[Rfam]
RNA sequence: CAGGGUUGCAAUGAUGAUAAAAAGCUCCCUCUUCUGAGAUGAGGUGAGGACAUUUGCUGGUAGAAUCGAACCUAAACAAUCAUAGCCACCACUGAGCAA
Numbered sequence: 001c002a003g004g005g006u007u008g009c010a011a012u013g014a015u016g017a018u019a020a021a022a023a024g025c026u027c028c029c030u031c032u033u034c035u036g037a038g039a040u041g042a043g044g045u046g047a048g049g050a051c052a053u054u055u056g057c058u059g060g061u062a063g064a065a066u067c068g069a070a071c072c073u074a075a076a077c078a079a080u081c082a083u084a085g086c087c088a089c090c091a092c093u094g095a096g097c098a099a
Stems, first nucleotide, its partner, number of pairs: 006099004
Dot-bracket structure: .....((((......................................................................................))))
The record is a 99-nucleotide RNA sequence from Amborella trichopoda, which matches "Small nucleolar RNA R30/Z108" in Rfam. Pairs were carried over by alignment from the consensus structure, which was predicted with PFOLD. On this family, see Marker et al., Curr Biol 2002: "Experimental RNomics. Identification of 140 Candidates for Small Non-Messenger RNAs in the Plant Arabidopsis thaliana". Taxonomically the source falls in Amborella (Eukaryota, Magnoliopsida, Amborellales, Amborellaceae). Rfam's curators write: snoR30 is a C/D box small nucleolar RNA which acts as a methylation guide for 18S ribosomal RNA in plants. The family's RNA type in Rfam is C/D-box small nucleolar RNA.